Description
This 105-nucleotide sequence from Pelosinus fermentans belongs to the Rfam family "SAM riboswitch aptamer (S box leader)". The match comes from Rfam's covariance-model search (76 bits). The source organism's lineage runs through Bacteria, Bacillati, Sporomusaceae, Pelosinus and Pelosinus fermentans.

RNA sequence: CAUUCAUCAAGAGUUAGCCGAGGGUAUUGGCCCGAUGAAGCUACGGCAACCACCGCGCAAUGCGAACGGUGCCAAUUCCAACAGGAAUUUCCUGGGAGAUGAAGA
Numbered sequence: 001c002a003u004u005c006a007u008c009a010a011g012a013g014u015u016a017g018c019c020g021a022g023g024g025u026a027u028u029g030g031c032c033c034g035a036u037g038a039a040g041c042u043a044c045g046g047c048a049a050c051c052a053c054c055g056c057g058c059a060a061u062g063c064g065a066a067c068g069g070u071g072c073c074a075a076u077u078c079c080a081a082c083a084g085g086a087a088u089u090u091c092c093u094g095g096g097a098g099a100u101g102a103a104g105a
Stems, first nucleotide, its partner, number of pairs: 003103006013044001015043004022033003027081004045073004050069002053064001077097001082094005